[Rfam]
RNA sequence: GGGGCUGAUUUUGGAUUCGACGGAGUAUCUUGUUAUUUAAAGUGCAUGCCGAGGUGAGGCAGGCCUCGUAAAAAGCCUCAAAAGAUAAAUGCAAAUAAUACUACAUAUAGAGAAUCUGUUGCUUUAGCAGCUUAAAUCAGACUAAUAUUCUGAAGGUUCCCUCUCGUUUCAAUAUUUACUCUUAGAUAUUAAAAAAUAAAUAGAGAGGCCAUAUAAAUAAGAGUGCGCGUAAAUGCUUGCUUUUGGCUUAACGUUAAGUAUAAAAAGCUAGUUGGUUAGUGAUUGGUCUUGAUAUAUCUACGCCAAUUAAAUGUAAUUCAAGACCUAAGCAUGUAGGUUACUAAAAAUAAAAAGAAUUCUGGACGCGGGUUCGAACCCCGCCAGCUCCACCA
Numbered sequence: 001g002g003g004g005c006u007g008a009u010u011u012u013g014g015a016u017u018c019g020a021c022g023g024a025g026u027a028u029c030u031u032g033u034u035a036u037u038u039a040a041a042g043u044g045c046a047u048g049c050c051g052a053g054g055u056g057a058g059g060c061a062g063g064c065c066u067c068g069u070a071a072a073a074a075g076c077c078u079c080a081a082a083a084g085a086u087a088a089a090u091g092c093a094a095a096u097a098a099u100a101c102u103a104c105a106u107a108u109a110g111a112g113a114a115u116c117u118g119u120u121g122c123u124u125u126a127g128c129a130g131c132u133u134a135a136a137u138c139a140g141a142c143u144a145a146u147a148u149u150c151u152g153a154a155g156g157u158u159c160c161c162u163c164u165c166g167u168u169u170c171a172a173u174a175u176u177u178a179c180u181c182u183u184a185g186a187u188a189u190u191a192a193a194a195a196a197u198a199a200a201u202a203g204a205g206a207g208g209c210c211a212u213a214u215a216a217a218u219a220a221g222a223g224u225g226c227g228c229g230u231a232a233a234u235g236c237u238u239g240c241u242u243u244u245g246g247c248u249u250a251a252c253g254u255u256a257a258g259u260a261u262a263a264a265a266a267g268c269u270a271g272u273u274g275g276u277u278a279g280u281g282a283u284u285g286g287u288c289u290u291g292a293u294a295u296a297u298c299u300a301c302g303c304c305a306a307u308u309a310a311a312u313g314u315a316a317u318u319c320a321a322g323a324c325c326u327a328a329g330c331a332u333g334u335a336g337g338u339u340a341c342u343a344a345a346a347a348u349a350a351a352a353a354g355a356a357u358u359c360u361g362g363a364c365g366c367g368g369g370u371u372c373g374a375a376c377c378c379c380g381c382c383a384g385c386u387c388c389a390c391c392a
Stems, first nucleotide, its partner, number of pairs: 001388007021361006028354001030352001034349005041342003045333005050068005055080006121148001124145004160208006168193002171190005178224004183220001227254004232249001239268005271307006279299001282295002285325004290320003365381005

transfer-messenger RNA: a 392-nucleotide RNA sequence from Candidatus Blochmanniella pennsylvanica. The base pairs follow the family's consensus structure, which is taken from published work. By type it is a non-coding RNA gene.